[Rfam]
RNA sequence: AAAUUUAAUAGGCAAACCUUGGGAAACCUUGGGACGCAAAGCUAAAGGGACUAAAGUUUUAAACUAUGUCAGCCAGUUGCCGAA
Number, nucleotide and partner (000 for none) at each position: 001a000002a000003a000004u000005u000006u000007a000008a000009u000010a000011g000012g037013c036014a000015a000016a000017c032018c031019u000020u000021g028022g027023g000024a000025a000026a000027c022028c021029u000030u000031g018032g017033g000034a000035c000036g013037c012038a000039a000040a078041g077042c076043u075044a000045a000046a000047g074048g073049g070050a069051c068052u000053a000054a000055a000056g064057u063058u062059u000060u000061a000062a058063a057064c056065u000066a000067u000068g051069u050070c049071a000072g000073c048074c047075a043076g042077u041078u040079g000080c000081c000082g000083a000084a000